[Rfam]
RNA sequence: ACAAACCUUCAGGACAGGGUGAAAUUCCCGACCGGCGGUGAUGGAGCCAAUUCUCCUCAGUCCGCGACCCGGAUGCAAAAUGGCGAGCAUCCGGCUGACCCGGUGAAAUUCCGUGACCGACAGUAUAGUCUGGAUGGGAGAAGGGAGAA
Dot-bracket structure: .....(((((......(((.......))).[[((((((.....................[[))))...(((((................)))))....(.(((.......))).)]])).(((....]]))).......))))).....
About this RNA: Rfam assigns this 149-nucleotide RNA from Aneurinibacillus sp. XH2 to the family "FMN riboswitch aptamer (RFN element)". The source organism's lineage runs through Bacteria, Bacillota, Bacilli, Paenibacillaceae and Aneurinibacillus. Rfam links the family to the GO term FMN binding.